[Rfam]
RNA sequence: UCCUGGAUUCCGCUGGAUUUAUGGCAGAGGCGGGGGACCCACCGUCCCGGGCACUGUAUGCCCUUGGGGUUAAGCCAUCACGUGAACUUUUCCGGAUGGCCGGAUGCCCUCAUCCGAACCCGACAGCUAACUCCGCAGGUGUGAGAGGCGAU
Numbered sequence: 001u002c003c004u005g006g007a008u009u010c011c012g013c014u015g016g017a018u019u020u021a022u023g024g025c026a027g028a029g030g031c032g033g034g035g036g037a038c039c040c041a042c043c044g045u046c047c048c049g050g051g052c053a054c055u056g057u058a059u060g061c062c063c064u065u066g067g068g069g070u071u072a073a074g075c076c077a078u079c080a081c082g083u084g085a086a087c088u089u090u091u092c093c094g095g096a097u098g099g100c101c102g103g104a105u106g107c108c109c110u111c112a113u114c115c116g117a118a119c120c121c122g123a124c125a126g127c128u129a130a131c132u133c134c135g136c137a138g139g140u141g142u143g144a145g146a147g148g149c150g151a152u
Stems, first nucleotide, its partner, number of pairs: 011141004018029003030136006040066002067121003075099004102115004